[Rfam]
RNA sequence: AGCUUUUUGUACCCGUGCUGAGAUUUCGUCCAUCACCAGGCCAUCAGUACUGAUGAGACUCCCCAGAUACGUGAAGCG
Numbered sequence: 001a002g003c004u005u006u007u008u009g010u011a012c013c014c015g016u017g018c019u020g021a022g023a024u025u026u027c028g029u030c031c032a033u034c035a036c037c038a039g040g041c042c043a044u045c046a047g048u049a050c051u052g053a054u055g056a057g058a059c060u061c062c063c064c065a066g067a068u069a070c071g072u073g074a075a076g077c078g
Stems, first nucleotide, its partner, number of pairs: 002077005008071004013066001017062001020061003024058007
Rfam assigns this 78-nucleotide RNA sequence from Schistosoma japonicum to the family "mir-3492 microRNA precursor family".
The source organism's lineage runs through Eukaryota, Lophotrochozoa, Platyhelminthes, Strigeidida and Schistosoma.
Gene Ontology terms of the family: RISC complex and miRNA-mediated post-transcriptional gene silencing.
Pairs were carried over by alignment from the consensus structure, which was predicted with RNAalifold.